[Rfam]
RNA sequence: CAACCUCUGGCGAUAGACGUGAAUGUUG
Numbered sequence: 001c002a003a004c005c006u007c008u009g010g011c012g013a014u015a016g017a018c019g020u021g022a023a024u025g026u027u028g
Stems, first nucleotide, its partner, number of pairs: 001028004008023001010020003
RNA: L19-Flavobacteria ribosomal protein leader